[Rfam]
RNA: U4 spliceosomal RNA
Nucleotides: 176
Base pairs, nucleotide, nucleotide: 020052021051022050023049024048026047027046028045034042035041085152088151089150090149091148092147093146094145095144096143097142
Number, partner (000 for none) and nucleotide at each position: 001000a002000g003000c004000c005000u006000u007000g008000c009000a010000c011000a012000g013000u014000g015000g016000c017000a018000g019000u020052a021051u022050c023049a024048u025000a026047g027046c028045c029000a030000a031000u032000g033000a034042g035041g036000u037000u038000u039000a040000u041035c042034c043000g044000a045028g046027g047026c048024g049023u050022g051021a052020u053000u054000a055000u056000u057000g058000c059000u060000a061000a062000c063000a064000g065000a066000u067000a068000a069000a070000a071000c072000c073000a074000a075000g076000a077000g078000a079000u080000u081000u082000c083000c084000a085152a086000c087000a088151u089150u090149g091148u092147g093146a094145a095144c096143a097142g098000a099000u100000c101000a102000g103000a104000g105000u106000u107000u108000c109000u110000g111000g112000u113000g114000a115000c116000a117000g118000g119000c120000c121000c122000a123000g124000c125000a126000g127000u128000c129000a130000g131000a132000a133000a134000g135000g136000c137000u138000u139000c140000u141000c142097c143096u144095g145094u146093u147092u148091g149090c150089a151088a152085u153000a154000a155000a156000u157000u158000a159000u160000a161000a162000a163000a164000u165000g166000u167000g168000g169000a170000u171000a172000a173000g174000a175000g176000c